The record is a 149-nucleotide RNA from Eschrichtius robustus, which matches "Small nucleolar RNA SNORA57" in Rfam. It scores 146 bits against the family's covariance model. Its family is annotated with RNA processing and nucleolus in the Gene Ontology. The family's RNA type in Rfam is H/ACA-box small nucleolar RNA. The family's consensus secondary structure was predicted with PFOLD.
RNA sequence: CCUCCUUUUCUUGGCGGGGAUCGGGCUUGCGGUCCCGGUGCGCGUAAUGUACAGAGGUAGAGGGAAAGGGCUCCGGCCCCCUCGGCGUCAUGUCUUCGGUACCAGUGGCUUCCAGUCUGCAGGUUCUAUCCUCAAGUGCUGGGAUACGG
Numbered sequence: 001c002c003u004c005c006u007u008u009u010c011u012u013g014g015c016g017g018g019g020a021u022c023g024g025g026c027u028u029g030c031g032g033u034c035c036c037g038g039u040g041c042g043c044g045u046a047a048u049g050u051a052c053a054g055a056g057g058u059a060g061a062g063g064g065a066a067a068g069g070g071c072u073c074c075g076g077c078c079c080c081c082u083c084g085g086c087g088u089c090a091u092g093u094c095u096u097c098g099g100u101a102c103c104a105g106u107g108g109c110u111u112c113c114a115g116u117c118u119g120c121a122g123g124u125u126c127u128a129u130c131c132u133c134a135a136g137u138g139c140u141g142g143g144a145u146a147c148g149g
Stems, first nucleotide, its partner, number of pairs: 001057004015044002018041001020039001022037004083141006102123002105120004